[Rfam]
RNA sequence: AACUAAAAUGUUCUCCGAGCCCGAUUACCUGUGGUCGGUUGCUAUGGUUUUCGGGCCGAUAGGGUAUACCGGGAAACCGGUAUGCCUCCCGGUGCGGAAAGGAGAACACUGCCAUACUUG
Numbered sequence: 001a002a003c004u005a006a007a008a009u010g011u012u013c014u015c016c017g018a019g020c021c022c023g024a025u026u027a028c029c030u031g032u033g034g035u036c037g038g039u040u041g042c043u044a045u046g047g048u049u050u051u052c053g054g055g056c057c058g059a060u061a062g063g064g065u066a067u068a069c070c071g072g073g074a075a076a077c078c079g080g081u082a083u084g085c086c087u088c089c090c091g092g093u094g095c096g097g098a099a100a101g102g103a104g105a106a107c108a109c110u111g112c113c114a115u116a117c118u119u120g
Base pairs, nucleotide, nucleotide: 011106012105013104014103015102016101019056020055021054022053023052024051027048028047029046033043034042035041062087063086064085065084066083067082068081069080070079071078072077088097089096

A member of the RNA family "Molybdenum/Tungsten riboswitch aptamer (Moco RNA motif)" from Desulfofundulus thermobenzoicus, 120 nucleotides long. The base pairs follow the family's consensus structure, which is taken from published work. The match comes from Rfam's covariance-model search (72 bits).